[Rfam]
RNA sequence: GAUGCAAGCCAGGCAGCCGCUGGUCGUCGCAAGACGACGGGAGGAAGGUCCGGACUCCACAGGGCAGGGUGACGGUUAACGGCCGUCCGCCGAAUACAUAAGGCGAGGAAUAGGGCCACAGAGACGAGUCUUUGGGACCGGGGAGGGCGAAAGCCGCUCCCUGCGUUACAAAGGGUGAAACGCGGUAACCUCCACCCGGAGCAAUUCCAAAUAGGCACGCGAUGAGGCGGUCCGCGGAGCGUGCGGGUAGGAAGCUUGAGCCGUGAAGCAAUUCACGGCCUAGAGGAAUGGCUGUCAUAACGGGCAACCGUCGUAACAGAAUCCGGCCUAUCGGCUUGCUUCACAU
Numbered sequence: 001g002a003u004g005c006a007a008g009c010c011a012g013g014c015a016g017c018c019g020c021u022g023g024u025c026g027u028c029g030c031a032a033g034a035c036g037a038c039g040g041g042a043g044g045a046a047g048g049u050c051c052g053g054a055c056u057c058c059a060c061a062g063g064g065c066a067g068g069g070u071g072a073c074g075g076u077u078a079a080c081g082g083c084c085g086u087c088c089g090c091c092g093a094a095u096a097c098a099u100a101a102g103g104c105g106a107g108g109a110a111u112a113g114g115g116c117c118a119c120a121g122a123g124a125c126g127a128g129u130c131u132u133u134g135g136g137a138c139c140g141g142g143g144a145g146g147g148c149g150a151a152a153g154c155c156g157c158u159c160c161c162u163g164c165g166u167u168a169c170a171a172a173g174g175g176u177g178a179a180a181c182g183c184g185g186u187a188a189c190c191u192c193c194a195c196c197c198g199g200a201g202c203a204a205u206u207c208c209a210a211a212u213a214g215g216c217a218c219g220c221g222a223u224g225a226g227g228c229g230g231u232c233c234g235c236g237g238a239g240c241g242u243g244c245g246g247g248u249a250g251g252a253a254g255c256u257u258g259a260g261c262c263g264u265g266a267a268g269c270a271a272u273u274c275a276c277g278g279c280c281u282a283g284a285g286g287a288a289u290g291g292c293u294g295u296c297a298u299a300a301c302g303g304g305c306a307a308c309c310g311u312c313g314u315a316a317c318a319g320a321a322u323c324c325g326g327c328c329u330a331u332c333g334g335c336u337u338g339c340u341u342c343a344c345a346u
Base pairs, nucleotide, nucleotide: 001342002341004339005338006337007336008335009334010333011331012296013295014294015293016292017291018290020041021040023038024037025036026035027034028033046329047328048327050326051325052324053323054322055201056200057199058198062233063232064231065230067197068196069195070194071193072086073085074084075083076082087107088105089104090103091102108192109191113190114189115186116185117184130174131173132170205253206252207251208250215244216243217242218241219240220239227235228234260279261278262277263276264275265274266273267272